[Rfam]
RNA sequence: CAAUUUUUAAUAAUGUGUUUCUUUUUAAAAAGGUCUGAAUUGAUGAACUCUGUAGUGAUUUCAGUGCUUUGCUGAGAUAAAUU
Numbered sequence: 001c002a003a004u005u006u007u008u009a010a011u012a013a014u015g016u017g018u019u020u021c022u023u024u025u026u027a028a029a030a031a032g033g034u035c036u037g038a039a040u041u042g043a044u045g046a047a048c049u050c051u052g053u054a055g056u057g058a059u060u061u062c063a064g065u066g067c068u069u070u071g072c073u074g075a076g077a078u079a080a081a082u083u
Stems, first nucleotide, its partner, number of pairs: 002082001004080002007077002
The record is an 83-nucleotide RNA sequence from Lamprotornis superbus, which matches "Small nucleolar RNA SNORD72" in Rfam.
About the family: snoRNA HBII-240 belongs to the CD family of snoRNAs. It is the human orthologue of the mouse MBII-240 and is predicted to guide 2'O-ribose methylation of the large 28S rRNA at residue U4590.
The literature on the family includes a 2001 paper in EMBO J by Huttenhofer et al., "RNomics: an experimental approach that identifies 201 candidates for novel, small, non-messenger RNAs in mouse".
Rfam links the family to the GO terms nucleolus and RNA processing.
It is annotated as a C/D-box small nucleolar RNA.
The organism belongs to Lamprotornis, within Eukaryota.
It scores 43 bits against the family's covariance model.